[Rfam]
RNA: pemK RNA
RNA sequence: AUAAUGAUACUUCUGCAUAGUCAACAGUCCGAGCGUGAUAAAACCGUCGCAGGCAAUGAGUGCAGUUGCAUGAGAACCAUGCAAGGGUGGAACUCCCGUGA
Numbered sequence: 001a002u003a004a005u006g007a008u009a010c011u012u013c014u015g016c017a018u019a020g021u022c023a024a025c026a027g028u029c030c031g032a033g034c035g036u037g038a039u040a041a042a043a044c045c046g047u048c049g050c051a052g053g054c055a056a057u058g059a060g061u062g063c064a065g066u067u068g069c070a071u072g073a074g075a076a077c078c079a080u081g082c083a084a085g086g087g088u089g090g091a092a093c094u095c096c097c098g099u100g101a
Stems, first nucleotide, its partner, number of pairs: 012098001013065006066084003070080003085097003
Dot-bracket structure: ...........(((((((.........................................))))))(((.(((.....))).)))(((.......))))...